[Rfam]
RNA sequence: AAGCAUGUUUCCAAGGGCUGUGGCUGCUUGUAGCCGUGGAGUCCCCAAAUGCAUGCCAGAGUAAUGGAGAGAGUUUGACAGCGCAGGUCAGCACAGAACCUGCAGCUGCCAUUCAGCUUUCCUGUAUAU
Number, nucleotide and partner (000 for none) at each position: 001a000002a000003g000004c000005a000006u000007g000008u000009u000010u000011c039012c038013a000014a000015g000016g035017g034018c033019u032020g031021u030022g029023g000024c000025u000026g000027c000028u000029u022030g021031u020032a019033g018034c017035c016036g000037u000038g012039g011040a000041g000042u000043c000044c000045c000046c000047a000048a000049a000050u000051g000052c000053a000054u000055g000056c000057c000058a000059g000060a000061g000062u000063a000064a000065u000066g122067g121068a120069g119070a118071g117072a000073g000074u000075u000076u000077g000078a000079c000080a000081g109082c108083g000084c102085a101086g100087g099088u000089c000090a000091g000092c000093a000094c000095a000096g000097a000098a000099c087100c086101u085102g084103c000104a000105g000106c000107u000108g082109c081110c000111a000112u000113u000114c000115a000116g000117c071118u070119u069120u068121c067122c066123u000124g000125u000126a000127u000128a000129u000
This 129-nucleotide sequence from Mus spicilegus belongs to the Rfam family "Small nucleolar RNA SNORA44".
Taxonomically the source falls in Mus (Eukaryota, Metazoa, Dipnotetrapodomorpha, Boreoeutheria).
Rfam's curators write: ACA44 is a member of the H/ACA class of snoRNA that guide the sites of modification of uridines to pseudouridines.
Rfam 15.1 lists 1,056 matches to the family in 599 species.
Its family is annotated with nucleolus and RNA processing in the Gene Ontology.
The family's consensus secondary structure was predicted with PFOLD.
By type it is an H/ACA-box small nucleolar RNA.